[Rfam]
RNA sequence: UUUUCUAUAAAUCAGAAUGAUCUGAAAUUUGGAGCGUGUGUUCAUAAAAAAUAGGAUAAUCUAAUAAAAAUAUAAAAAUAAAUAGACUAAAAUUCCUCUGAAAAUUUGUGAGAGUAUUUUGGUCAAUUUAUAUUUUGAAAUUUUUUUUUUCAUAUUUUUAUUAAUUGUCUCUCACUAAGAUGUACACGCACUCCAAAUUUCAGAUCAUUCCGAUUUAUAGAAAA
Numbered sequence: 001u002u003u004u005c006u007a008u009a010a011a012u013c014a015g016a017a018u019g020a021u022c023u024g025a026a027a028u029u030u031g032g033a034g035c036g037u038g039u040g041u042u043c044a045u046a047a048a049a050a051a052u053a054g055g056a057u058a059a060u061c062u063a064a065u066a067a068a069a070a071u072a073u074a075a076a077a078a079u080a081a082a083u084a085g086a087c088u089a090a091a092a093u094u095c096c097u098c099u100g101a102a103a104a105u106u107u108g109u110g111a112g113a114g115u116a117u118u119u120u121g122g123u124c125a126a127u128u129u130a131u132a133u134u135u136u137g138a139a140a141u142u143u144u145u146u147u148u149u150u151c152a153u154a155u156u157u158u159u160a161u162u163a164a165u166u167g168u169c170u171c172u173c174a175c176u177a178a179g180a181u182g183u184a185c186a187c188g189c190a191c192u193c194c195a196a197a198u199u200u201c202a203g204a205u206c207a208u209u210c211c212g213a214u215u216u217a218u219a220g221a222a223a224a
Base pairs, nucleotide, nucleotide: 001224002223003222004221005220006219007218008217009216010215011214012213013212015210016209017208018207019206020205021204022203023202024201025200026199027198028197029196030195031194032193033192034191036189037188038187039186040185041184043182044181045180062163063162064161066159067158068157069156070155071154072153073152075150076149077148078147079130080129081128082127083126085124086123087122088121089120090119091118092117093116095114097112099108100107101106

Overview
MIR8562 microRNA precursor family: a 224-nucleotide RNA sequence from Amborella trichopoda.